[Rfam]
RNA sequence: AUAAUGUAUUGUUAGGUGAGGCUCCUAUAUAGAUAUAUGCUACUGCCCAAAAAUAUCGAAAGAUGCCAAUGGGUUAACAGGUACUACCGAAUUAAGGUUUUACUUAAUGUAGCUGGGAUUACCCAAAGCUAUAUAGUGCUAAAGCUCAACGAAAGAUAGUGUAU
Numbered sequence: 001a002u003a004a005u006g007u008a009u010u011g012u013u014a015g016g017u018g019a020g021g022c023u024c025c026u027a028u029a030u031a032g033a034u035a036u037a038u039g040c041u042a043c044u045g046c047c048c049a050a051a052a053a054u055a056u057c058g059a060a061a062g063a064u065g066c067c068a069a070u071g072g073g074u075u076a077a078c079a080g081g082u083a084c085u086a087c088c089g090a091a092u093u094a095a096g097g098u099u100u101u102a103c104u105u106a107a108u109g110u111a112g113c114u115g116g117g118a119u120u121a122c123c124c125a126a127a128g129c130u131a132u133a134u135a136g137u138g139c140u141a142a143a144g145c146u147c148a149a150c151g152a153a154a155g156a157u158a159g160u161g162u163a164u
Stems, first nucleotide, its partner, number of pairs: 007158004011150002013095001015146003020140003025136008039113005045074005054065004080104004086098003115124003
Description
This 164-nucleotide RNA from Clostridium acetobutylicum belongs to the Rfam family "M-box riboswitch aptamer (ykoK leader)". The literature on the family includes a 2007 paper in Cell by Dann CE 3rd et al., "Structure and mechanism of a metal-sensing regulatory RNA". Rfam's curators write: M-box riboswitch, also know as ykoK leader is described as a metaloregulatory RNA that sense divalent metals and function as a genetic control element of genes related to divalent metal transport in bacteria. It was first reported upstream of the B.subtilis ykoK gene and genes with related functions in other bacteria. It is one of the family's seed sequences.